[Rfam]
RNA sequence: ACACCACAAGGUGAUGGUGUUCCACCUUUCCCAACCGCCCUGAAUAUAAAGGGCUGAUGACGCCUGAUAACCC
Dot-bracket structure: .........[[[[..((((((.]]]]..........((((..........))))....)))))).........